[Rfam]
RNA sequence: AAGGGCAUGCGUAACUGGCGUAACGUGGAUACCACGGGGGAGCGCAUGGCGACAACGGCCGAACGCCUGGGCAGAGGUA
Numbered sequence: 001a002a003g004g005g006c007a008u009g010c011g012u013a014a015c016u017g018g019c020g021u022a023a024c025g026u027g028g029a030u031a032c033c034a035c036g037g038g039g040g041a042g043c044g045c046a047u048g049g050c051g052a053c054a055a056c057g058g059c060c061g062a063a064c065g066c067c068u069g070g071g072c073a074g075a076g077g078u079a
Stems, first nucleotide, its partner, number of pairs: 004050001006048007015039002017067005025035004056074001058072003